[Rfam]
RNA sequence: GGAGUUGAGCAGACAGUCGCCGCUUCGCUUCAAGUCCUUACAGAGAAGAUAAAUAAGCGUAGGGGAGGAAAGUCCGGGCUCCAUAGGGCAAAGGUGCCAGGUAACACCUGGGGAGUGUAAAUUCACGACAAGUGCAACAGAAAGCAAACCGCCGAUGGCCCGUUCAACGGGAUCAGGUAAGGGUGAAAUGGUGCGGUAAAAGCGCACCGCGCUGCUGGUAACAGUUCGCGGCACGGUAAACUCCACCUGGAGCAAGGCCAAAUAGGGGUUCCACACUGUACGGCCCGUACUGAACCCGGGUAGGCUGCUUGAGCCAACACGUGAGUGUUAGCCUAGAUGAAUGACUGUCCAUGACAGAACCCGGCUUAACGGUCAACUCCAUUA
Dot-bracket structure: ((((((((.(.(((((((.((.((.(((((........................))))).)).))....[[[.[[[[[((((....[[...((((((((((.....)))))(((((....)))).)((...((((.............(((((..(((.((........)).))))))..)).......((((((.......))))))((((.((((....))).).))).)...))..)))))))))))))...((((......((((((......((((...]])))).)))))).....))))......((.(((((....))))).))..........)))))))..........]]]]]]]]...).))))))))....
Background
The family of this 384-nucleotide RNA from Sodalis sp. Fse is "Bacterial RNase P class A". The source organism's lineage runs through Bacteria, Pseudomonadati, Pseudomonadota, Bruguierivoracaceae and Sodalis. By type it is a ribozyme. Rfam links the family to the GO terms dimeric ribonuclease P complex, ribonuclease P activity and tRNA processing.